About this RNA
The record is an 83-nucleotide sequence from Hevea brasiliensis, which matches "Small nucleolar RNA R32/R81/Z41" in Rfam. The family has 6 seed sequences and 238 matches in Rfam 15.1. NCBI's taxonomy places the organism under Eukaryota, Streptophytina, Tracheophyta, Micrandreae, Hevea. The family's consensus secondary structure was predicted with PFOLD. Rfam links the family to the GO terms nucleolus and RNA processing. By type it is a C/D-box small nucleolar RNA.
RNA sequence: AGCUGAAGAUGAUGAUAGGAAAGCGGGGUGAUCAAUUUCAUAUGAUCAAAAUUUCUCCUUGCUGCGUUCUUUCUGAUUCACAU
Dot-bracket structure: ...((((.....................................................................))))...